c-di-AMP riboswitch aptamer (ydaO/yuaA leader): a 167-nucleotide sequence from Streptomyces tateyamensis.
RNA sequence: UCCCACAGCACACCGGUACAGGCAGGAGCGGGGGACCCACAGCACUUCGCCGUACCCCGCUCCAGCCCGUGAGCGCGGUCCGGCUCGGGGUGAAGCCGCGCCCGCGCGGCCGGGCCACUUGCGGCCCGAACCCGACAGCUAACUCCGCAGGCGUCGCAAGAGGACCG
Numbered sequence: 001u002c003c004c005a006c007a008g009c010a011c012a013c014c015g016g017u018a019c020a021g022g023c024a025g026g027a028g029c030g031g032g033g034g035a036c037c038c039a040c041a042g043c044a045c046u047u048c049g050c051c052g053u054a055c056c057c058c059g060c061u062c063c064a065g066c067c068c069g070u071g072a073g074c075g076c077g078g079u080c081c082g083g084c085u086c087g088g089g090g091u092g093a094a095g096c097c098g099c100g101c102c103c104g105c106g107c108g109g110c111c112g113g114g115c116c117a118c119u120u121g122c123g124g125c126c127c128g129a130a131c132c133c134g135a136c137a138g139c140u141a142a143c144u145c146c147g148c149a150g151g152c153g154u155c156g157c158a159a160g161a162g163g164a165c166c167g
Stems, first nucleotide, its partner, number of pairs: 001027003028148006038087001088133003096109004112127004
A search with the family's covariance model found it, with a score of 48 bits.